[Rfam]
RNA sequence: UCGUGCUAGAUGGGGAGUUAGCGGUGCCCUGUACCUGCAAUCCGCUGUAGCAGGAUCGAAUUCCCGACAGAGGAUGCAUUUUUAGAGGUCAGGAGCGUUUUAAGCGGUGUUGAGAGCCGGGCCCUGUGCAAUAGAUACUUGUGAACCCCGUCAGGUCCGGAAGGAAGCAGCGGUAAGCAGGAAUUCUAUGUGCCGCAGGUCAACCUGGUUUGAGCUGGCUGAUUCGUUUCGCUCUACAGGUGUAUUCGACGAAGGGUGCACGA
Numbered sequence: 001u002c003g004u005g006c007u008a009g010a011u012g013g014g015g016a017g018u019u020a021g022c023g024g025u026g027c028c029c030u031g032u033a034c035c036u037g038c039a040a041u042c043c044g045c046u047g048u049a050g051c052a053g054g055a056u057c058g059a060a061u062u063c064c065c066g067a068c069a070g071a072g073g074a075u076g077c078a079u080u081u082u083u084a085g086a087g088g089u090c091a092g093g094a095g096c097g098u099u100u101u102a103a104g105c106g107g108u109g110u111u112g113a114g115a116g117c118c119g120g121g122c123c124c125u126g127u128g129c130a131a132u133a134g135a136u137a138c139u140u141g142u143g144a145a146c147c148c149c150g151u152c153a154g155g156u157c158c159g160g161a162a163g164g165a166a167g168c169a170g171c172g173g174u175a176a177g178c179a180g181g182a183a184u185u186c187u188a189u190g191u192g193c194c195g196c197a198g199g200u201c202a203a204c205c206u207g208g209u210u211u212g213a214g215c216u217g218g219c220u221g222a223u224u225c226g227u228u229u230c231g232c233u234c235u236a237c238a239g240g241u242g243u244a245u246u247c248g249a250c251g252a253a254g255g256g257u258g259c260a261c262g263a
Base pairs, nucleotide, nucleotide: 001263002262003261004260005259006258009057010056011055012030013029014028015027017025018024019023034054035053036052037051038050063256064255065254068251072247073246074245075244076243078241079240080239081238083236084235085234086233087232091229092228096226097225100222101221104219105218106216107215108214114211115210116209117208118207119206120205121204123199124198125197126196127195128194129190130189132188133187134186135185138181139180140179141178142177148173149172150171151170156165157164158163
RNA: Bacterial large signal recognition particle RNA